The family of this 78-nucleotide RNA from Teladorsagia circumcincta is "Nematode snoRNA ceN22".
Gene Ontology terms of the family: nucleolus and RNA processing.
Rfam 15.1 lists 24 matches to the family in 21 species.
The literature on the family includes a 2007 paper in BMC Mol Biol by Jia et al., "Systematic identification of non-coding RNA 2,2,7-trimethylguanosine cap structures in Caenorhabditis elegans".
Pairs were carried over by alignment from the consensus structure.
RNA sequence: GUUGCAUGGCUGAUGACGAUCACUGUCUUAGGAAGUGCCGUCUUAUAAUUAAUGAUUAUAAUUAGGACGCUGAAGCCG
Numbered sequence: 001g002u003u004g005c006a007u008g009g010c011u012g013a014u015g016a017c018g019a020u021c022a023c024u025g026u027c028u029u030a031g032g033a034a035g036u037g038c039c040g041u042c043u044u045a046u047a048a049u050u051a052a053u054g055a056u057u058a059u060a061a062u063u064a065g066g067a068c069g070c071u072g073a074a075g076c077c078g
Stems, first nucleotide, its partner, number of pairs: 008077004